[Rfam]
RNA: Group II catalytic intron D1-D4-1
RNA sequence: CGACCGGGGUGACCCGGCUCGUGCAAGCAAAAGUCAGCAGAGGUCGUAGCACCGAUCUGUCGCAACCCAGCGGCAACGGGAAGGAC
Numbered sequence: 001c002g003a004c005c006g007g008g009g010u011g012a013c014c015c016g017g018c019u020c021g022u023g024c025a026a027g028c029a030a031a032a033g034u035c036a037g038c039a040g041a042g043g044u045c046g047u048a049g050c051a052c053c054g055a056u057c058u059g060u061c062g063c064a065a066c067c068c069a070g071c072g073g074c075a076a077c078g079g080g081a082a083g084g085a086c
Stems, first nucleotide, its partner, number of pairs: 001021002004017005034041002043086003052079003059071002